[Rfam]
RNA sequence: GUGACAGAAGAGAGUGAACACACAUGGUGUUUUCUGGCAUAUGAUAUACUUGAAGCUAUGUGUACUCACUGCUCUAUCUGUCAC
Numbered sequence: 001g002u003g004a005c006a007g008a009a010g011a012g013a014g015u016g017a018a019c020a021c022a023c024a025u026g027g028u029g030u031u032u033u034c035u036g037g038c039a040u041a042u043g044a045u046a047u048a049c050u051u052g053a054a055g056c057u058a059u060g061u062g063u064a065c066u067c068a069c070u071g072c073u074c075u076a077u078c079u080g081u082c083a084c
Stems, first nucleotide, its partner, number of pairs: 001084008010074003013070005020063002023060003